[Rfam]
RNA: small nucleolar RNA snoR135
RNA sequence: AUAGCAUGGAUUAUGUGUAUGGGCUUAGUGCUAUAAGCAAUGAACAUUGAUCCUAGAGAAUUCUCUGCAAUAUUGAUUUAGGGAGAUGUGUGCAGUUAGUUGAUUUCAUUUUAACCUAUCAAAAGUUUUAACAAUCAUCGAUCUCAUCCUU
Numbered sequence: 001a002u003a004g005c006a007u008g009g010a011u012u013a014u015g016u017g018u019a020u021g022g023g024c025u026u027a028g029u030g031c032u033a034u035a036a037g038c039a040a041u042g043a044a045c046a047u048u049g050a051u052c053c054u055a056g057a058g059a060a061u062u063c064u065c066u067g068c069a070a071u072a073u074u075g076a077u078u079u080a081g082g083g084a085g086a087u088g089u090g091u092g093c094a095g096u097u098a099g100u101u102g103a104u105u106u107c108a109u110u111u112u113a114a115c116c117u118a119u120c121a122a123a124a125g126u127u128u129u130a131a132c133a134a135u136c137a138u139c140g141a142u143c144u145c146a147u148c149c150u151u
Stems, first nucleotide, its partner, number of pairs: 004068003008064003015045002018042003081145004088138003095132004